[Rfam]
RNA sequence: UGGCCGAGGAUGAAAACAAUGAUCUGAUCUUGCAUACUUUCAGUGAUACGCAGAAAUCUGAUGGAUUAAAGGAUUUUCUGAGGCCA
Numbered sequence: 001u002g003g004c005c006g007a008g009g010a011u012g013a014a015a016a017c018a019a020u021g022a023u024c025u026g027a028u029c030u031u032g033c034a035u036a037c038u039u040u041c042a043g044u045g046a047u048a049c050g051c052a053g054a055a056a057u058c059u060g061a062u063g064g065a066u067u068a069a070a071g072g073a074u075u076u077u078c079u080g081a082g083g084c085c086a
Stems, first nucleotide, its partner, number of pairs: 002085004

This 86-nucleotide sequence from Stercorarius parasiticus belongs to the Rfam family "Small nucleolar RNA SNORD93". The base pairs follow the family's consensus structure, which was predicted with RNAalifold. The source organism's lineage runs through Eukaryota, Sauria, Dinosauria, Neoaves and Stercorarius. Rfam classes the family as a C/D-box small nucleolar RNA. Gene Ontology terms of the family: RNA processing and nucleolus.